RNA sequence: UUGAAGAAUUUUUUGUAAACUUCAACUUGCAGACUUGGAGAAUUUGAAGACUUUAACUUGCCAACUUGGAGAUUUUGAAGAAUUUAACU
Numbered sequence: 001u002u003g004a005a006g007a008a009u010u011u012u013u014u015g016u017a018a019a020c021u022u023c024a025a026c027u028u029g030c031a032g033a034c035u036u037g038g039a040g041a042a043u044u045u046g047a048a049g050a051c052u053u054u055a056a057c058u059u060g061c062c063a064a065c066u067u068g069g070a071g072a073u074u075u076u077g078a079a080g081a082a083u084u085u086a087a088c089u
Stems, first nucleotide, its partner, number of pairs: 001087005012079004017074001020071005029061003035056006

Rfam assigns this 89-nucleotide RNA sequence from Solanum commersonii to the family "MIR8024 microRNA precursor family". A search with the family's covariance model found it, with a score of 63 bits. Pairs were carried over by alignment from the consensus structure, which was predicted with RNAalifold.